The family of this 73-nucleotide RNA sequence from Papilio machaon is "mir-11 microRNA precursor family". Clan: mir-6 clan. The source organism's lineage runs through Eukaryota, Panarthropoda, Neoptera, Panorpida and Papilio. A search with the family's covariance model found it, with a score of 69 bits. Pairs were carried over by alignment from the consensus structure, which was predicted with RNAalifold. A reference for the family is Chen et al. (2010), "Next-generation small RNA sequencing for microRNAs profiling in the honey bee Apis mellifera", Insect Mol Biol.

RNA sequence: UCUUGUGGCUAGGACUCGGCCUGUGACUUGUGUGUCAGUGUGUCACAUCACAGUCAGAGUUCUAGCUCCACGG
Numbered sequence: 001u002c003u004u005g006u007g008g009c010u011a012g013g014a015c016u017c018g019g020c021c022u023g024u025g026a027c028u029u030g031u032g033u034g035u036c037a038g039u040g041u042g043u044c045a046c047a048u049c050a051c052a053g054u055c056a057g058a059g060u061u062c063u064a065g066c067u068c069c070a071c072g073g
Base pairs, nucleotide, nucleotide: 004070005069009065010064011063012062013061014060015059016058017057021053022052023051024050025049026048030046031045032044